RNA: Small nucleolar RNA SNORA33
Organism: Cavia porcellus
RNA sequence: AAGCCAGCGAUGAAUUUGCUUAUCUGUAUGUGUUUGUGCAGAAAUGUACCAAAAGCUGGAGAUAAUAAUGCCAUGUUACAAGCCUUAAAGACAUGUCAUUGAAGUCAUUAAGGUCCCUGAAAAUGGCUACAUUU
Numbered sequence: 001a002a003g004c005c006a007g008c009g010a011u012g013a014a015u016u017u018g019c020u021u022a023u024c025u026g027u028a029u030g031u032g033u034u035u036g037u038g039c040a041g042a043a044a045u046g047u048a049c050c051a052a053a054a055g056c057u058g059g060a061g062a063u064a065a066u067a068a069u070g071c072c073a074u075g076u077u078a079c080a081a082g083c084c085u086u087a088a089a090g091a092c093a094u095g096u097c098a099u100u101g102a103a104g105u106c107a108u109u110a111a112g113g114u115c116c117c118u119g120a121a122a123a124u125g126g127c128u129a130c131a132u133u134u
Base pairs, nucleotide, nucleotide: 004059005058006057007056015042016041017040018039019038070127071126072125073124082114083113084112085111086110087109088108090106091105092104